[Rfam]
RNA sequence: GUACGUUCUCAGGGCGGGGUGAAAUUCCCCACCGGCGGUGAUUCCCUCAUAAGGACAGCCCGCGAGCGCCCGCAGUUUUAUAGCUGCGGGGUCAAGCAGAUCUGGUGUGACUCCAGAGCCGACGGUUACAGUCCGGAUGGGAGAGGCUAAAA
Numbered sequence: 001g002u003a004c005g006u007u008c009u010c011a012g013g014g015c016g017g018g019g020u021g022a023a024a025u026u027c028c029c030c031a032c033c034g035g036c037g038g039u040g041a042u043u044c045c046c047u048c049a050u051a052a053g054g055a056c057a058g059c060c061c062g063c064g065a066g067c068g069c070c071c072g073c074a075g076u077u078u079u080a081u082a083g084c085u086g087c088g089g090g091g092u093c094a095a096g097c098a099g100a101u102c103u104g105g106u107g108u109g110a111c112u113c114c115a116g117a118g119c120c121g122a123c124g125g126u127u128a129c130a131g132u133c134c135g136g137a138u139g140g141g142a143g144a145g146g147c148u149a150a151a152a
Stems, first nucleotide, its partner, number of pairs: 005148001007146004017029003031132002033121002035063004058119002066097002101117005123135003
FMN riboswitch aptamer (RFN element): a 152-nucleotide RNA.